[Rfam]
RNA sequence: CCAGGGGGCCGGGCAGUCGCGUCGGAGCGUUCGCGCUUCGCCGAGGAAAGUCCGGACUCCAUGAAACAAGGGUGGCGGGUAACGCCCGCCGGACCGUGGCCGACGCUGCGGUUCAGGGACAGUGCCACAGAAAGCAGACCGCCGAUGACGCGAGCCUUUUCAAGGACUUGGCGAACAGGCAAGGAUGAAAGGGUGCGGUAAGAGCGCACCGCGCGGGCAGUAAUGUACGCGGCAUGGCAAACCCCACCCGGAGCAAGGCCGAAUAGGGGCGGCGCGCCGCGAGGCAGGGAUGUUUCAUCCCGAGCACGCCCGGGUUGGCUGCUGGAGCGGGAAAGCGAUUUUUCGCCUAGAGGAAUGGCUGCCCCUCCCGUGGCAGGUCGCUAAGGCGAUACCGCAUGGCGAGGACAGAAUCCGGCUUACAGGCCCCCUGGCAUC
Numbered sequence: 001c002c003a004g005g006g007g008g009c010c011g012g013g014c015a016g017u018c019g020c021g022u023c024g025g026a027g028c029g030u031u032c033g034c035g036c037u038u039c040g041c042c043g044a045g046g047a048a049a050g051u052c053c054g055g056a057c058u059c060c061a062u063g064a065a066a067c068a069a070g071g072g073u074g075g076c077g078g079g080u081a082a083c084g085c086c087c088g089c090c091g092g093a094c095c096g097u098g099g100c101c102g103a104c105g106c107u108g109c110g111g112u113u114c115a116g117g118g119a120c121a122g123u124g125c126c127a128c129a130g131a132a133a134g135c136a137g138a139c140c141g142c143c144g145a146u147g148a149c150g151c152g153a154g155c156c157u158u159u160u161c162a163a164g165g166a167c168u169u170g171g172c173g174a175a176c177a178g179g180c181a182a183g184g185a186u187g188a189a190a191g192g193g194u195g196c197g198g199u200a201a202g203a204g205c206g207c208a209c210c211g212c213g214c215g216g217g218c219a220g221u222a223a224u225g226u227a228c229g230c231g232g233c234a235u236g237g238c239a240a241a242c243c244c245c246a247c248c249c250g251g252a253g254c255a256a257g258g259c260c261g262a263a264u265a266g267g268g269g270c271g272g273c274g275c276g277c278c279g280c281g282a283g284g285c286a287g288g289g290a291u292g293u294u295u296c297a298u299c300c301c302g303a304g305c306a307c308g309c310c311c312g313g314g315u316u317g318g319c320u321g322c323u324g325g326a327g328c329g330g331g332a333a334a335g336c337g338a339u340u341u342u343u344c345g346c347c348u349a350g351a352g353g354a355a356u357g358g359c360u361g362c363c364c365c366u367c368c369c370g371u372g373g374c375a376g377g378u379c380g381c382u383a384a385g386g387c388g389a390u391a392c393c394g395c396a397u398g399g400c401g402a403g404g405a406c407a408g409a410a411u412c413c414g415g416c417u418u419a420c421a422g423g424c425c426c427c428c429u430g431g432c433a434u435c
Base pairs, nucleotide, nucleotide: 001431002430003429004428005427006426007425008424009423010422011420012363013362014361015360016359017358018357020043021042023040024039025038026037027036028035048418049417050416052415053414054413055412056411057253058252059251060250066295068293070249071248072247073246074245075089076088077087078086079085090116091114092113093112094111095110096109097108098107099106100105117244118243122242123241124238125237126236139184140183141180142179143178146177147176149173150172192210193209194208195207196206197205211233212231213230214229215228217226218225219224257320258319259318260317267311268310269309270308271307287301288300289299290298291297327346328345329344330343331342332341333340334339
A member of the RNA family "Bacterial RNase P class A" from Parapontixanthobacter aurantiacus, 435 nucleotides long. Its family is annotated with ribonuclease P activity, tRNA processing and dimeric ribonuclease P complex in the Gene Ontology. The family's RNA type in Rfam is ribozyme.